RNA sequence: UAUUUAUCAAGAGAGGUGGAGGGACUGGCCCUUUGAAGCCCAGCAACCAGUAUAAAUUAUUAUACAUUGGUGCUAAAUCCUACAGUAUUAUUCUGAGAGAUGAGUA
Numbered sequence: 001u002a003u004u005u006a007u008c009a010a011g012a013g014a015g016g017u018g019g020a021g022g023g024a025c026u027g028g029c030c031c032u033u034u035g036a037a038g039c040c041c042a043g044c045a046a047c048c049a050g051u052a053u054a055a056a057u058u059a060u061u062a063u064a065c066a067u068u069g070g071u072g073c074u075a076a077a078u079c080c081u082a083c084a085g086u087a088u089u090a091u092u093c094u095g096a097g098a099g100a101u102g103a104g105u106a
Base pairs, nucleotide, nucleotide: 001106002105003104004103005102006101007100008099013041015040016039017038021031022030023029027080028079042074043073044072045071047070048069050065051064052063078098083095084094085093087091
The family of this 106-nucleotide RNA sequence from Romboutsia maritimum is "SAM riboswitch aptamer (S box leader)". Taxonomically the source falls in Romboutsia (Bacteria, Bacillota, Clostridia, Peptostreptococcales). The match comes from Rfam's covariance-model search (85 bits). The SAM riboswitch is found upstream of a number of genes which code for proteins involved in methionine or cysteine biosynthesis in Gram-positive bacteria. The SAM riboswitch acts at the level of transcription termination control.